[Rfam]
RNA sequence: UCCCGCCAUCCAUCACAACGGAUCGUCCGGCACGUACCUGCCGGUGAAGGAAGAGAAGA
Numbered sequence: 001u002c003c004c005g006c007c008a009u010c011c012a013u014c015a016c017a018a019c020g021g022a023u024c025g026u027c028c029g030g031c032a033c034g035u036a037c038c039u040g041c042c043g044g045u046g047a048a049g050g051a052a053g054a055g056a057a058g059a
Stems, first nucleotide, its partner, number of pairs: 009051003013047003027044006
RNA: msiK RNA
Organism: Subtercola boreus